[Rfam]
RNA: c-di-AMP riboswitch aptamer (ydaO/yuaA leader)
Organism: Streptomyces sp. TLI_235
RNA sequence: ACCGGGUCACCGACCAGACCUUGGGCAGGGACGGGGGACCCACGUUUCGACGCCGGCCCCACACGGCUAGGGGUGAAGCCGCCUCAGCGCGGCCGGGCCACCUCCCGGUCCGAACCCGACAGCUCACCUCGCAGGCGUGCGGAGAGGGAACUG
Numbered sequence: 001a002c003c004g005g006g007u008c009a010c011c012g013a014c015c016a017g018a019c020c021u022u023g024g025g026c027a028g029g030g031a032c033g034g035g036g037g038a039c040c041c042a043c044g045u046u047u048c049g050a051c052g053c054c055g056g057c058c059c060c061a062c063a064c065g066g067c068u069a070g071g072g073g074u075g076a077a078g079c080c081g082c083c084u085c086a087g088c089g090c091g092g093c094c095g096g097g098c099c100a101c102c103u104c105c106c107g108g109u110c111c112g113a114a115c116c117c118g119a120c121a122g123c124u125c126a127c128c129u130c131g132c133a134g135g136c137g138u139g140c141g142g143a144g145a146g147g148g149a150a151c152u153g
Stems, first nucleotide, its partner, number of pairs: 002030001003028001032131005041070001071117003079092004095111004